The record is a 97-nucleotide RNA from Paspalum vaginatum, which matches "Small nucleolar RNA snoR99" in Rfam. For this family Rfam cites "Experimental RNomics: identification of 140 candidates for small non-messenger RNAs in the plant Arabidopsis thaliana" (Marker et al., Curr Biol, 2002). NCBI's taxonomy places the organism under Eukaryota, commelinids, Panicoideae, Paspalinae, Paspalum. It is annotated as an H/ACA-box small nucleolar RNA. The base pairs follow the family's consensus structure, which was predicted with WAR. Gene Ontology terms of the family: nucleolus and RNA processing.

[Rfam]
RNA sequence: GUGCCUUGGGGAUGAACGGGUCCCUAACAUUGCACCAUUUAAUUCACUUUGUCAGCUGUUCUUAUAUCUACAGCUGAUCAUUAUGGAUGGGAAAUUU
Numbered sequence: 001g002u003g004c005c006u007u008g009g010g011g012a013u014g015a016a017c018g019g020g021u022c023c024c025u026a027a028c029a030u031u032g033c034a035c036c037a038u039u040u041a042a043u044u045c046a047c048u049u050u051g052u053c054a055g056c057u058g059u060u061c062u063u064a065u066a067u068c069u070a071c072a073g074c075u076g077a078u079c080a081u082u083a084u085g086g087a088u089g090g091g092a093a094a095u096u097u
Stems, first nucleotide, its partner, number of pairs: 035090005051078008